[Rfam]
A member of the RNA family "Small nucleolar RNA SNORD66" from Suricata suricatta, 78 nucleotides long.
The base pairs follow the family's consensus structure, which was predicted with RNAalifold.
It is annotated as a C/D-box small nucleolar RNA.
On this family, see Huttenhofer et al., EMBO J 2001: "RNomics: an experimental approach that identifies 201 candidates for novel, small, non-messenger RNAs in mouse".
NCBI's taxonomy places the organism under Eukaryota, Deuterostomia, Theria, Boreoeutheria, Suricata.
RNA sequence: AUCCUGUGAUGGCUAUUUGCACGUGCCAACUUGACUGGGCCACAGUGCCCUGAUAGUUGGUUAAACUUUAUUCUGGAU
Numbered sequence: 001a002u003c004c005u006g007u008g009a010u011g012g013c014u015a016u017u018u019g020c021a022c023g024u025g026c027c028a029a030c031u032u033g034a035c036u037g038g039g040c041c042a043c044a045g046u047g048c049c050c051u052g053a054u055a056g057u058u059g060g061u062u063a064a065a066c067u068u069u070a071u072u073c074u075g076g077a078u
Stems, first nucleotide, its partner, number of pairs: 001078004